[Rfam]
This 89-nucleotide RNA from Pleuronectes platessa belongs to the Rfam family "mir-731 microRNA precursor family".
Rfam 15.1 lists 91 matches to the family in 80 species.
Rfam links the family to the GO terms miRNA-mediated post-transcriptional gene silencing and RISC complex.
The family's consensus secondary structure was predicted with RNAalifold.
RNA sequence: AGGUGUUGUUCCUCAAUGACACGUUUUCUCCCGGAUGCUGAACACAGUAAACGCAACCGGGAAUUCCGUGUCAGCCAAGAAUGACACUU
Numbered sequence: 001a002g003g004u005g006u007u008g009u010u011c012c013u014c015a016a017u018g019a020c021a022c023g024u025u026u027u028c029u030c031c032c033g034g035a036u037g038c039u040g041a042a043c044a045c046a047g048u049a050a051a052c053g054c055a056a057c058c059g060g061g062a063a064u065u066c067c068g069u070g071u072c073a074g075c076c077a078a079g080a081a082u083g084a085c086a087c088u089u
Stems, first nucleotide, its partner, number of pairs: 001089011017073007029062006036055003